This 140-nucleotide RNA sequence from Polycladomyces abyssicola belongs to the Rfam family "c-di-AMP riboswitch aptamer (ydaO/yuaA leader)". A search with the family's covariance model found it, with a score of 42 bits.
RNA sequence: AUUAAAGAUAUCCCGUAUUUCGAUGGAAACGGGGGAACCAAGUGUUGGGGGAAUUCCGGUUAGACACCGGAAGGGAUGUAAAGCACUUUUCUGCCAUCCUGCCCGCCAGCCAGCCUCGUCGGCUGGAGCUGGGAGAUCCA
Numbered sequence: 001a002u003u004a005a006a007g008a009u010a011u012c013c014c015g016u017a018u019u020u021c022g023a024u025g026g027a028a029a030c031g032g033g034g035g036a037a038c039c040a041a042g043u044g045u046u047g048g049g050g051g052a053a054u055u056c057c058g059g060u061u062a063g064a065c066a067c068c069g070g071a072a073g074g075g076a077u078g079u080a081a082a083g084c085a086c087u088u089u090u091c092u093g094c095c096a097u098c099c100u101g102c103c104c105g106c107c108a109g110c111c112a113g114c115c116u117c118g119u120c121g122g123c124u125g126g127a128g129c130u131g132g133g134a135g136a137u138c139c140a
Base pairs, nucleotide, nucleotide: 013122014121018028019027020026029119030118031117032116033115034114039047040046048104049103050102055071056070057069058068074099075098076097077096